The family of this 426-nucleotide part of an RNA from Thelohanellus kitauei is "Eukaryotic large subunit ribosomal RNA". Its Rfam clan is "LSU clan". The base pairs follow the family's consensus structure, which is taken from published work.
RNA sequence: CAACCUCAACUCAGGCAAGGAAACGCCGUGAACUAAAGCAUUUCAGUAACGGCAGGAAAAGAAAAUAACCAUGAUUCCCACAGUAACGGCGAGUGAAGUGGGAAGAGUCCAACGUUGAAAGCGGCAUCUGUAACAAGGUGUGGCAUUGUAACGUAUAGACUUGUCAUCGAGGCGUCCGACCGGACUAAAGUCGUUAAGAAUGGCGCACCAUAGAGGGUUGUAGUCCCGUACAUGGUUCGGUAUCGGAUGUCGUGAAUGGCAAAGUCAAAGAGUCGGAUUGUUUGGGAAUGCAGUCCAAAGUGGGUGGUAAACUCCAUCUAAGGCUAAAUAUUACUCCGAGACCGAUAGCAAACAAGUACCGUGAGGGAAAGGUGAAAAGAAUUCUGAGAAGAGAGUGAGAAGAACGUGAAACCGUUAGUGGGGAAG
Number, nucleotide and partner (000 for none) at each position: 001c000002a000003a000004c000005c000006u000007c000008a000009a000010c000011u000012c000013a000014g000015g000016c000017a000018a000019g000020g000021a000022a000023a000024c055025g053026c052027c051028g050029u049030g000031a000032a000033c000034u000035a042036a041037a000038g000039c000040a000041u036042u035043u000044c000045a000046g000047u000048a000049a029050c028051g027052g026053c025054a000055g024056g000057a000058a000059a000060a000061g000062a000063a000064a000065a072066u071067a000068a000069c000070c000071a066072u065073g000074a000075u000076u103077c102078c101079c100080a099081c000082a000083g000084u000085a000086a094087c093088g000089g000090c000091g000092a000093g087094u086095g000096a000097a000098g000099u080100g079101g078102g077103a076104a000105g000106a325107g324108u323109c322110c000111a000112a000113c153114g152115u151116u150117g149118a000119a147120a000121g144122c143123g000124g141125c140126a139127u138128c137129u000130g000131u000132a000133a000134c000135a000136a000137g128138g127139u126140g125141u124142g000143g122144c121145a000146u000147u119148g000149u117150a116151a115152c114153g113154u000155a000156u000157a000158g266159a265160c000161u262162u261163g260164u000165c258166a257167u256168c000169g000170a000171g000172g250173c249174g248175u247176c246177c245178g244179a000180c240181c239182g238183g237184a236185c235186u234187a000188a000189a000190g206191u000192c205193g204194u203195u202196a000197a000198g000199a000200a000201u000202g195203g194204c193205g192206c190207a000208c000209c213210a000211u000212a000213g209214a000215g000216g226217g225218u000219u000220g000221u000222a000223g000224u000225c217226c216227c000228g000229u000230a000231c000232a000233u000234g186235g185236u184237u183238c182239g181240g180241u000242a000243u000244c178245g177246g176247a175248u174249g173250u172251c000252g000253u000254g000255a000256a167257u166258g165259g000260c163261a162262a161263a000264g000265u159266c158267a000268a000269a000270g000271a000272g000273u000274c000275g296276g295277a294278u293279u292280g291281u290282u000283u000284g000285g000286g000287a000288a000289u000290g281291c280292a279293g278294u277295c276296c275297a000298a000299a000300g000301u000302g319303g318304g317305u316306g315307g000308u000309a000310a000311a000312c000313u000314c000315c306316a305317u304318c303319u302320a000321a000322g109323g108324c107325u106326a000327a000328a000329u000330a000331u000332u000333a000334c000335u000336c000337c000338g000339a000340g000341a000342c000343c000344g000345a000346u000347a000348g000349c000350a000351a000352a000353c000354a000355a000356g000357u000358a000359c366360c365361g000362u000363g000364a000365g360366g359367g000368a000369a000370a000371g000372g000373u000374g000375a000376a000377a000378a000379g000380a000381a000382u393383u392384c391385u390386g000387a000388g000389a000390a385391g384392a383393g382394a000395g000396u000397g000398a000399g000400a000401a000402g000403a000404a000405c000406g000407u000408g000409a000410a000411a000412c000413c000414g000415u000416u000417a000418g000419u000420g000421g000422g000423g000424a000425a000426g000